[Rfam]
RNA sequence: CUGGCAAAUGCUAGUGGAACUACAAUUGGUCGCGGGUUCGAACCCCGCCGCUGAUUUUGUUGGUGUAGCUCAGUUGGUAGAGCAGUUCUUUGUUUCACGCCUUGUUUGUUGCCAGAGU
Numbered sequence: 001c002u003g004g005c006a007a008a009u010g011c012u013a014g015u016g017g018a019a020c021u022a023c024a025a026u027u028g029g030u031c032g033c034g035g036g037u038u039c040g041a042a043c044c045c046c047g048c049c050g051c052u053g054a055u056u057u058u059g060u061u062g063g064u065g066u067a068g069c070u071c072a073g074u075u076g077g078u079a080g081a082g083c084a085g086u087u088c089u090u091u092g093u094u095u096c097a098c099g100c101c102u103u104g105u106u107u108g109u110u111g112c113c114a115g116a117g118u
Stems, first nucleotide, its partner, number of pairs: 002114006014098006025086003032048005039077001049065006068083004